The record is a 163-nucleotide RNA sequence from Ligilactobacillus ceti, which matches "PyrR binding site" in Rfam. The family's RNA type in Rfam is cis-regulatory element. Rfam's curators write: This family represents the PyrR binding site and terminator structure. The match comes from Rfam's covariance-model search (58 bits). Lineage of the source: Bacteria > Bacilli > Lactobacillales > Ligilactobacillus > Ligilactobacillus ceti. Pairs were carried over by alignment from the consensus structure, which is taken from published work.
RNA sequence: AGUACCUUUAAUUCAGUUCAGAGAAACUGGCAAGGUUUUCGGAAGAAAAUUAUAAAAGAUUGUAAUUUUGACGCAGUGUACAUAAAGUUGCCCUCAGUGUAGCUUUGUGUCUCUUGUUGCAAAUUCUAAACCCCUUGCAAAUUCUGCAAGGGGUUUUUCUUUU
Numbered sequence: 001a002g003u004a005c006c007u008u009u010a011a012u013u014c015a016g017u018u019c020a021g022a023g024a025a026a027c028u029g030g031c032a033a034g035g036u037u038u039u040c041g042g043a044a045g046a047a048a049a050u051u052a053u054a055a056a057a058g059a060u061u062g063u064a065a066u067u068u069u070g071a072c073g074c075a076g077u078g079u080a081c082a083u084a085a086a087g088u089u090g091c092c093c094u095c096a097g098u099g100u101a102g103c104u105u106u107g108u109g110u111c112u113c114u115u116g117u118u119g120c121a122a123a124u125u126c127u128a129a130a131c132c133c134c135u136u137g138c139a140a141a142u143u144c145u146g147c148a149a150g151g152g153g154u155u156u157u158u159c160u161u162u163u
Stems, first nucleotide, its partner, number of pairs: 004036005013030006046069010128156012